This 89-nucleotide sequence belongs to the Rfam family "mir-146 microRNA precursor family". The sequence is in the family's curated seed alignment. Its family is annotated with miRNA-mediated post-transcriptional gene silencing and RISC complex in the Gene Ontology. Rfam 15.1 lists 1,617 matches to the family in 642 species.

RNA sequence: CUGAGCUCUUGGCUUUGAGAACUGAAUUCCAAGGGUGUCUGCUUUAUAUUCAGCCCACGGAGUUCAGUUCUUAAGUUUGGAUGCUCACG
Numbered sequence: 001c002u003g004a005g006c007u008c009u010u011g012g013c014u015u016u017g018a019g020a021a022c023u024g025a026a027u028u029c030c031a032a033g034g035g036u037g038u039c040u041g042c043u044u045u046a047u048a049u050u051c052a053g054c055c056c057a058c059g060g061a062g063u064u065c066a067g068u069u070c071u072u073a074a075g076u077u078u079g080g081a082u083g084c085u086c087a088c089g
Base pairs, nucleotide, nucleotide: 008080009079011077012076013075018071019070020069021068022067023066024065025064033056034055035054036053